[Rfam]
RNA sequence: AGAUCCGUAGCUCAAUGGCAGAGCAACCGACUCUUAAUCGGUAGGUUGUGGGUUCGACCCCCACCGGGUCUA
Numbered sequence: 001a002g003a004u005c006c007g008u009a010g011c012u013c014a015a016u017g018g019c020a021g022a023g024c025a026a027c028c029g030a031c032u033c034u035u036a037a038u039c040g041g042u043a044g045g046u047u048g049u050g051g052g053u054u055c056g057a058c059c060c061c062c063a064c065c066g067g068g069u070c071u072a
Stems, first nucleotide, its partner, number of pairs: 001071007010024004026042005048064005